[Rfam]
RNA sequence: AUUUCUCUUUGGCAAAGCUGUCGAAAGGCAGUGACGCAAAGCUAUAGGGACUACCUCCUGUAACGGGAAAUGUCAGCCAGUUGCUUUU
Numbered sequence: 001a002u003u004u005c006u007c008u009u010u011g012g013c014a015a016a017g018c019u020g021u022c023g024a025a026a027g028g029c030a031g032u033g034a035c036g037c038a039a040a041g042c043u044a045u046a047g048g049g050a051c052u053a054c055c056u057c058c059u060g061u062a063a064c065g066g067g068a069a070a071u072g073u074c075a076g077c078c079a080g081u082u083g084c085u086u087u088u
Stems, first nucleotide, its partner, number of pairs: 012037002017032006040082004047078002049074003056068004